[Rfam]
RNA sequence: GGAUCGAUGAUGACUUAAAAAAAUGGAAACCUUGGAAAUCUGAACAAAAUGAGUGACCAAGACACUUCUGUGAGCUGAGGUCC
Numbered sequence: 001g002g003a004u005c006g007a008u009g010a011u012g013a014c015u016u017a018a019a020a021a022a023a024u025g026g027a028a029a030c031c032u033u034g035g036a037a038a039u040c041u042g043a044a045c046a047a048a049a050u051g052a053g054u055g056a057c058c059a060a061g062a063c064a065c066u067u068c069u070g071u072g073a074g075c076u077g078a079g080g081u082c083c
Base pairs, nucleotide, nucleotide: 001083002082003081004080005079027054030051032047033046034045

Rfam assigns this 83-nucleotide RNA to the family "Small nucleolar RNA SNORD116". By type it is a C/D-box small nucleolar RNA. It is one of the family's seed sequences. The literature on the family includes a 2000 paper in Proc Natl Acad Sci U S A by Cavaille et al., "Identification of brain-specific and imprinted small nucleolar RNA genes exhibiting an unusual genomic organization". Pairs were carried over by alignment from the consensus structure, which was predicted with PFOLD.